The record is a 30-nucleotide sequence from Halocalculus aciditolerans, which matches "CRISPR RNA direct repeat element" in Rfam. Pairs were carried over by alignment from the consensus structure, which was predicted with WAR.
RNA sequence: GUUACAGACGAACCCUUGAUGGGUUGAAUC
Dot-bracket structure: ..........(((((.....))))).....
Numbered sequence: 001g002u003u004a005c006a007g008a009c010g011a012a013c014c015c016u017u018g019a020u021g022g023g024u025u026g027a028a029u030c
Stems, first nucleotide, its partner, number of pairs: 011025005

About this RNA
It scores 40 bits against the family's covariance model.